[Rfam]
RNA sequence: AAAUCAUGGAGACCAGAAACCAUUAAAAACGGGGCGAAAUCCGAAAGGCCAGAAGAAUAAGAAAGCU
Numbered sequence: 001a002a003a004u005c006a007u008g009g010a011g012a013c014c015a016g017a018a019a020c021c022a023u024u025a026a027a028a029a030c031g032g033g034g035c036g037a038a039a040u041c042c043g044a045a046a047g048g049c050c051a052g053a054a055g056a057a058u059a060a061g062a063a064a065g066c067u
Base pairs, nucleotide, nucleotide: 006023007022008021009020033050034049035048040061